[Rfam]
RNA sequence: AUCUUUGCGCUUGGGGGCAAUGACGCAGCUAGUGAGGUAUUAACCGAGGCGCGUCUAUUGCUGGUUGAAAACUAUUUCCAAACCCCCUCUUCGGCUUAGGUUCCGCUUAAGUCUUAGAGAAUUUUUGGAAGGGUUCUUUUAAUUAAGAACC
Dot-bracket structure: .....................(((((.(((.....(((....)))..))))))))...............................((((..(((((((.......)))))))..))))............(((((((......)))))))